A member of the RNA family "mir-8/mir-141/mir-200 microRNA precursor family" from Hemiprocne comata, 69 nucleotides long. Rfam 15.1 lists 2,669 matches to the family in 883 species. The organism belongs to Hemiprocne, within Eukaryota.
RNA sequence: AUUGCUGUCUUACCAGGCAAAGUUAGAUCUGGCUACUUUUGUCUAAUACUGUCUGGUAAUGCCGUCAGU
Numbered sequence: 001a002u003u004g005c006u007g008u009c010u011u012a013c014c015a016g017g018c019a020a021a022g023u024u025a026g027a028u029c030u031g032g033c034u035a036c037u038u039u040u041g042u043c044u045a046a047u048a049c050u051g052u053c054u055g056g057u058a059a060u061g062c063c064g065u066c067a068g069u
Stems, first nucleotide, its partner, number of pairs: 002068003006064002009061001010059010022047006